[Rfam]
Nucleotides: 076
Base pairs, nucleotide, nucleotide: 002075003074005072006071007070008069009068010067011066012065013064014063015062016061017060019058020057021056022055023054025052026051027050028049029048030047031046
Number, partner (000 for none) and nucleotide at each position: 001000g002075g003074c004000a005072g006071g007070c008069a009068g010067a011066g012065u013064a014063u015062g016061g017060c018000a019058c020057a021056c022055a023054c024000a025052g026051g027050c028049a029048g030047c031046a032000c033000u034000c035000u036000g037000c038000c039000u040000c041000c042000c043000u044000u045000a046031u047030g048029c049028u050027g051026c052025c053000u054023g055022u056021g057020u058019g059000u060017g061016c062015c063014a064013u065012g066011c067010u068009c069008u070007g071006c072005c073000u074003g075002c076000c
A member of the RNA family "mir-9223 microRNA precursor family" from Xenopus tropicalis, 76 nucleotides long. Lineage of the source: Eukaryota > Chordata > Dipnotetrapodomorpha > Pipidae > Silurana. Rfam 15.1 lists 14,641 matches to the family in 28 species. A search with the family's covariance model found it, with a score of 55 bits.